Rfam assigns this 215-nucleotide sequence from Tetracentron sinense to the family "Plant small nucleolar RNA U3". Its family is annotated with RNA processing and nucleolus in the Gene Ontology. The source organism's lineage runs through Eukaryota, Streptophytina, Spermatophyta, Magnoliopsida and Tetracentron. Rfam describes the family as follows. Small nucleolar RNAs (snoRNAs) are involved in the processing and modification of rRNA in the nucleolus. There are two main classes of snoRNAs: the box C/D class, and the box H/ACA class. It is annotated as a C/D-box small nucleolar RNA. It scores 196 bits against the family's covariance model.
RNA sequence: ACGACCUUACUUGAACAGGAUCUGUUCUAUAGGCUCGUACCUCUGUAUCCUUGAGUUCUAAGGAGACAGGAACCUAUGUCUGGACGAUGAAUCAUGACCGUGUGAUCAGAGCGUGAUUAACGGCUAGGAAUCCAUGACCUGGAUCACCUGCUGUAGAGGAUCGUUCUCAGUUAGCCUUGGCUUACUGAGAUGGUCACUCGGUUGUCUGACAGACU
Numbered sequence: 001a002c003g004a005c006c007u008u009a010c011u012u013g014a015a016c017a018g019g020a021u022c023u024g025u026u027c028u029a030u031a032g033g034c035u036c037g038u039a040c041c042u043c044u045g046u047a048u049c050c051u052u053g054a055g056u057u058c059u060a061a062g063g064a065g066a067c068a069g070g071a072a073c074c075u076a077u078g079u080c081u082g083g084a085c086g087a088u089g090a091a092u093c094a095u096g097a098c099c100g101u102g103u104g105a106u107c108a109g110a111g112c113g114u115g116a117u118u119a120a121c122g123g124c125u126a127g128g129a130a131u132c133c134a135u136g137a138c139c140u141g142g143a144u145c146a147c148c149u150g151c152u153g154u155a156g157a158g159g160a161u162c163g164u165u166c167u168c169a170g171u172u173a174g175c176c177u178u179g180g181c182u183u184a185c186u187g188a189g190a191u192g193g194u195c196a197c198u199c200g201g202u203u204g205u206c207u208g209a210c211a212g213a214c215u
Base pairs, nucleotide, nucleotide: 001038002037003035005033006032007031013027014026015025016024017023018022043069044068045067046066048064049063050062051061052060053059078214079213080212081211082210097202098201099200100199102197103196104195105194106193107192108191110165111164112163113162120154121153122152123151124150127147130144131143132142133141134140167188168187169186170185171184173182174181175180